[Rfam]
RNA sequence: UCUCUUGCUUCAACAGUGCUUGAACAGAA
Number, nucleotide and partner (000 for none) at each position: 001u029002c000003u028004c027005u026006u000007g025008c000009u024010u023011c022012a021013a020014c018015a000016g000017u000018g014019c000020u013021u012022g011023a010024a009025c007026a005027g004028a003029a001
Shown here is a 29-nucleotide RNA sequence from Rattus norvegicus, a member of the family "Iron response element I". It scores 38 bits against the family's covariance model. The literature on the family includes a 1987 paper in Science by Hentze et al., "Identification of the iron-responsive element for the translational regulation of human ferritin mRNA". Its family is annotated with response to iron ion in the Gene Ontology. Pairs were carried over by alignment from the consensus structure, which is taken from published work.